Source information:
Shown here is a 101-nucleotide RNA sequence from Paramicrobacterium agarici, a member of the family "TPP riboswitch aptamer (THI element)". Taxonomically the source falls in Paramicrobacterium (Bacteria, Bacillati, Actinomycetota, Microbacteriaceae). Vitamin B(1) in its active form thiamin pyrophosphate (TPP) is an essential coenzyme that is synthesised by coupling of pyrimidine and thiazole moieties in bacteria. Pairs were carried over by alignment from the consensus structure, which is taken from published work.
[Rfam]
RNA sequence: GAGGAAGUUCGCGGGAGCCUCGUUGAGGCUGAGAGGGCCACGUGCCGACCGCCAGACCUGAUGCGGAUCAUGCCGCCGGAGGGAGAAACGCACAUGCAUGC
Numbered sequence: 001g002a003g004g005a006a007g008u009u010c011g012c013g014g015g016a017g018c019c020u021c022g023u024u025g026a027g028g029c030u031g032a033g034a035g036g037g038c039c040a041c042g043u044g045c046c047g048a049c050c051g052c053c054a055g056a057c058c059u060g061a062u063g064c065g066g067a068u069c070a071u072g073c074c075g076c077c078g079g080a081g082g083g084a085g086a087a088a089c090g091c092a093c094a095u096g097c098a099u100g101c
Stems, first nucleotide, its partner, number of pairs: 008087003011052004017029005036046003057082003063076004